[Rfam]
RNA sequence: ACCUGUCCCCGUGGCCCAGUGCGGCCCGCGGGACGACGGACACACACUGUGCCUGGGAAGAACUGGGCACUUCAGGGCGUU
Numbered sequence: 001a002c003c004u005g006u007c008c009c010c011g012u013g014g015c016c017c018a019g020u021g022c023g024g025c026c027c028g029c030g031g032g033a034c035g036a037c038g039g040a041c042a043c044a045c046a047c048u049g050u051g052c053c054u055g056g057g058a059a060g061a062a063c064u065g066g067g068c069a070c071u072u073c074a075g076g077g078c079g080u081u
Base pairs, nucleotide, nucleotide: 004035005034006033007032009031010030011029013026014025015024016023049070050069051068052067053066054065055063
The family of this 81-nucleotide sequence from Streptomyces microflavus is "nrdJ RNA".
NCBI's taxonomy places the organism under Bacteria, Actinomycetota, Kitasatosporales, Streptomycetaceae, Streptomyces microflavus.
Rfam classes the family as a small RNA.
It is one of the family's seed sequences.